[Rfam]
RNA sequence: AUAUGAUGCUGGGGGAGCCUUAUGGCUGAGAGGGAAUUUCGAUUCCUGACCCUUUGAACCUGAUGUGGUUAGUACCAUCGUAGGGAAGCUAUUUUAUAUUUGU
Number, nucleotide and partner (000 for none) at each position: 001a000002u000003a000004u000005g000006a000007u000008g089009c088010u087011g053012g052013g051014g050015g000016a047017g026018c025019c024020u000021u000022a000023u000024g019025g018026c017027u000028g000029a000030g000031a000032g000033g046034g045035a044036a043037u042038u000039u000040c000041g000042a037043u036044u035045c034046c033047u016048g000049a000050c014051c013052c012053u011054u000055u000056g000057a000058a000059c084060c083061u082062g081063a000064u000065g078066u077067g076068g075069u000070u000071a000072g000073u000074a000075c068076c067077a066078u065079c000080g000081u062082a061083g060084g059085g000086a000087a010088g009089c008090u000091a000092u000093u000094u000095u000096a000097u000098a000099u000100u000101u000102g000103u000